RNA sequence: ACCUAGGGUAGAGGUGCUGUAAUUAAGAGUAUUUGCUAAGAGCCGGCAGGCAAAGACGAGCAAAGAAAGGAAUUAUGGCCGAAGAAGAUAAAUUGGCAAAUUUAUCUUCUGGCUUUGCACAGAAUAUGUGUAAGGCUGUCACGUUAAGUUUACGUGGAGAGCUACAAGGUAC
Numbered sequence: 001a002c003c004u005a006g007g008g009u010a011g012a013g014g015u016g017c018u019g020u021a022a023u024u025a026a027g028a029g030u031a032u033u034u035g036c037u038a039a040g041a042g043c044c045g046g047c048a049g050g051c052a053a054a055g056a057c058g059a060g061c062a063a064a065g066a067a068a069g070g071a072a073u074u075a076u077g078g079c080c081g082a083a084g085a086a087g088a089u090a091a092a093u094u095g096g097c098a099a100a101u102u103u104a105u106c107u108u109c110u111g112g113c114u115u116u117g118c119a120c121a122g123a124a125u126a127u128g129u130g131u132a133a134g135g136c137u138g139u140c141a142c143g144u145u146a147a148g149u150u151u152a153c154g155u156g157g158a159g160a161g162c163u164a165c166a167a168g169g170u171a172c
Stems, first nucleotide, its partner, number of pairs: 008165004016079009032064006083110012111137011139157006
The family of this 172-nucleotide RNA sequence from Clostridium thermopalmarium is "Lysine riboswitch aptamer". The source organism's lineage runs through Bacteria, Bacillati, Clostridia, Clostridium and Clostridium thermopalmarium.